A member of the RNA family "Mammalian CPEB3 ribozyme" from Alligator mississippiensis, 76 nucleotides long.
RNA sequence: GGUUGCAAGUUUGAGGCUAUAGCAGAAGCAUUCAUGGUGCUGUCUGUCAUAUUCCAAUGCAUCUGUGAUUUCUACU
Number, nucleotide and partner (000 for none) at each position: 001g000002g000003u000004u000005g000006c000007a000008a000009g000010u000011u000012u000013g000014a000015g044016g043017c042018u000019a000020u000021a076022g075023c000024a073025g072026a071027a070028g040029c039030a038031u000032u000033c000034a000035u000036g000037g000038u030039g029040c028041u000042g017043u016044c015045u000046g000047u000048c065049a064050u000051a062052u061053u000054c059055c000056a000057a000058u000059g054060c000061a052062u051063c000064u049065g048066u000067g000068a000069u000070u027071u026072c025073u024074a000075c022076u021
A search with the family's covariance model found it, with a score of 38 bits. Rfam's curators write: The mammalian CPEB3 ribozyme is a self cleaving RNA located in the second intron of the CPEB3 gene which belongs to a family of genes regulating messenger RNA polyadenylation. NCBI's taxonomy places the organism under Eukaryota, Teleostomi, Crocodylia, Alligatoridae, Alligator. The base pairs follow the family's consensus structure, which is taken from published work.